[Rfam]
RNA sequence: CUUGCUUGGUGGCGCACUUGGACAAGUUCUUGGUGGGCUAACGUGUACUUUUAAUUUAUAGAAAUCAUGUUUCCAAGCCCGCUACUAAAGCGGGCUUUUUUGU
Dot-bracket structure: ........((.(..((((.(((.....))).))))...).)).................................((((((((....).))))))).......